[Rfam]
RNA sequence: UACUUAUCCAGAAAGACUGAGGGAAAGGCCCUUUGACGUCUUAGCAACCUGUUUCUAAUAAGGUGCUAACUCCUUCCGGCAAUGCCGGACAGAUAAGAU
Numbered sequence: 001u002a003c004u005u006a007u008c009c010a011g012a013a014a015g016a017c018u019g020a021g022g023g024a025a026a027g028g029c030c031c032u033u034u035g036a037c038g039u040c041u042u043a044g045c046a047a048c049c050u051g052u053u054u055c056u057a058a059u060a061a062g063g064u065g066c067u068a069a070c071u072c073c074u075u076c077c078g079g080c081a082a083u084g085c086c087g088g089a090c091a092g093a094u095a096a097g098a099u
Stems, first nucleotide, its partner, number of pairs: 003097006013042005021031003025075004043067004048063002050060004071091001076088005